[Rfam]
RNA sequence: ACUGCCAUAAUUGCCAUAGCAGAAGAGCACAUCACAGCCCUGUCAGAUUCUAAGGAAUCUGCGCGUUCUGCU
Dot-bracket structure: ............[[...((((((((.(.....).).]].....(((((((....)))))))....)))))))
The family of this 72-nucleotide RNA from Crocodylus porosus is "Mammalian CPEB3 ribozyme". The source organism's lineage runs through Eukaryota, Deuterostomia, Teleostomi, Crocodylidae and Crocodylus. Its family is annotated with RNA nuclease activity in the Gene Ontology. Pairs were carried over by alignment from the consensus structure, which is taken from published work. The mammalian CPEB3 ribozyme is a self cleaving RNA located in the second intron of the CPEB3 gene which belongs to a family of genes regulating messenger RNA polyadenylation.